[Rfam]
Nucleotides: 079
Stems, first nucleotide, its partner, number of pairs: 001038007019031003045064008
Number, partner (000 for none) and nucleotide at each position: 001038c002037c003036u004035g005034a006033u007032c008000a009000a010000u011000g012000u013000u014000g015000c016000u017000g018000c019031a020030c021029c022000u023000c024000a025000a026000c027000g028000u029021g030020g031019u032007g033006a034005u035004c036003a037002g038001g039000u040000g041000g042000c043000a044000a045064c046063a047062a048061g049060u050059u051058u052057u053000u054000a055000a056000a057052a058051a059050g060049a061048c062047u063046u064045g065000g066000c067000u068000a069000a070000g071000u072000c073000a074000g075000c076000a077000a078000c079000a
Record summary
Rfam assigns this 79-nucleotide RNA sequence from Rhizophagus irregularis to the family "HDV ribozyme from F. prausnitzii". The family has 48 seed sequences and 3,803 matches in Rfam 15.1. It scores 44 bits against the family's covariance model. Its family is annotated with catalytic activity in the Gene Ontology.